[Rfam]
RNA sequence: UAUUUCUAAAGGCAAACUUCCUGAAAGGGUAGGACGCAAAGCAAUGGGCCUAAGAAUGCAGAGAAUCCGCAUUUAUGGUCGCCAGGCUGCCAAU
Numbered sequence: 001u002a003u004u005u006c007u008a009a010a011g012g013c014a015a016a017c018u019u020c021c022u023g024a025a026a027g028g029g030u031a032g033g034a035c036g037c038a039a040a041g042c043a044a045u046g047g048g049c050c051u052a053a054g055a056a057u058g059c060a061g062a063g064a065a066u067c068c069g070c071a072u073u074u075a076u077g078g079u080c081g082c083c084a085g086g087c088u089g090c091c092a093a094u
Base pairs, nucleotide, nucleotide: 012037013036017032018031020029021028022027040088041087042086045084046083047082048079049078050077055073056072057071058070